[Rfam]
RNA sequence: CACGUGCUCCGGGGUCGGUGAGAGUCCGAACCGGCGGUGAUAGUCCGCGAGCCUGAACCAGGUGCCUUCGGCACCACCGGUGAGGGUUGACCUGGUGAAAUUCCGGGACCGACGGUGAAAGUCCGGAUGGGAGGAUGCACGAG
Numbered sequence: 001c002a003c004g005u006g007c008u009c010c011g012g013g014g015u016c017g018g019u020g021a022g023a024g025u026c027c028g029a030a031c032c033g034g035c036g037g038u039g040a041u042a043g044u045c046c047g048c049g050a051g052c053c054u055g056a057a058c059c060a061g062g063u064g065c066c067u068u069c070g071g072c073a074c075c076a077c078c079g080g081u082g083a084g085g086g087u088u089g090a091c092c093u094g095g096u097g098a099a100a101u102u103c104c105g106g107g108a109c110c111g112a113c114g115g116u117g118a119a120a121g122u123c124c125g126g127a128u129g130g131g132a133g134g135a136u137g138c139a140c141g142a143g
Base pairs, nucleotide, nucleotide: 003141004140005139006138007137008135009134010133016028017027018026030122031121032111033110034048035047036046037045043109044108051087052086053085091107092106093105094104095103113125114124115123
A member of the RNA family "FMN riboswitch aptamer (RFN element)" from Allobogoriella caseilytica, 143 nucleotides long.
Rfam 15.1 lists 6,230 matches to the family in 5,120 species.
Rfam links the family to the GO term FMN binding.
The base pairs follow the family's consensus structure, which is taken from published work.
The organism belongs to Allobogoriella, within Bacteria.